[Rfam]
RNA sequence: GGGAUAACGCAUUUUGCUAUCCCCUGUGAAUAACGCAAUGACAUGUAGGAUAAUUUUUCUACGUGUCAUUGUGUUAUUGGUCGGGGAUAGCAAAACAGUGCUAUCCC
Numbered sequence: 001g002g003g004a005u006a007a008c009g010c011a012u013u014u015u016g017c018u019a020u021c022c023c024c025u026g027u028g029a030a031u032a033a034c035g036c037a038a039u040g041a042c043a044u045g046u047a048g049g050a051u052a053a054u055u056u057u058u059c060u061a062c063g064u065g066u067c068a069u070u071g072u073g074u075u076a077u078u079g080g081u082c083g084g085g086g087a088u089a090g091c092a093a094a095a096c097a098g099u100g101c102u103a104u105c106c107c
Stems, first nucleotide, its partner, number of pairs: 002106004012095009022085003026081002029078022
Dot-bracket structure: .((((......(((((((((.(((.((.((((((((((((((((((((((......)))))))))))))))))))))).)).))).))))))))).......)))).
Rfam assigns this 107-nucleotide sequence from Prunus persica to the family "MIR6274 microRNA precursor family".
It scores 80 bits against the family's covariance model.
Its family is annotated with RISC complex and miRNA-mediated post-transcriptional gene silencing in the Gene Ontology.
The family's consensus secondary structure was predicted with RNAalifold.